[Rfam]
RNA sequence: UGGGCUGGCCACGAGGCCCUGGUUCACCCACUGGCGGGGGCUAUCUCC
Numbered sequence: 001u002g003g004g005c006u007g008g009c010c011a012c013g014a015g016g017c018c019c020u021g022g023u024u025c026a027c028c029c030a031c032u033g034g035c036g037g038g039g040g041c042u043a044u045c046u047c048c
Stems, first nucleotide, its partner, number of pairs: 001026006007018004

The record is a 48-nucleotide RNA sequence, which matches "DUF3800-XI RNA" in Rfam. It is annotated as a small RNA. Rfam describes the family as follows. Actinobacteria, Firmicutes, Proteobacteria, Spirochaetes (1 example). Pairs were carried over by alignment from the consensus structure, which is taken from published work.